This 111-nucleotide RNA sequence from Flavobacterium fontis belongs to the Rfam family "Flavo-1 RNA". Rfam classes the family as a small RNA.
RNA sequence: UCCUAGCCCCGAUAGUAGUGGAAAUCCUUUUUGGGGUGGUGGUAACGGCGUGAAUUCGAUACCUUUGACGUCAUCACCCCAAAAAGAUUGCAACGGAUAGCGGGAAAUAGC
Numbered sequence: 001u002c003c004u005a006g007c008c009c010c011g012a013u014a015g016u017a018g019u020g021g022a023a024a025u026c027c028u029u030u031u032u033g034g035g036g037u038g039g040u041g042g043u044a045a046c047g048g049c050g051u052g053a054a055u056u057c058g059a060u061a062c063c064u065u066u067g068a069c070g071u072c073a074u075c076a077c078c079c080c081a082a083a084a085a086g087a088u089u090g091c092a093a094c095g096g097a098u099a100g101c102g103g104g105a106a107a108u109a110g111c
Stems, first nucleotide, its partner, number of pairs: 009103003013099002018094002023089004029084015
Dot-bracket structure: ........(((.((...((...((((..(((((((((((((((..........................))))))))))))))).))))...))...)).)))........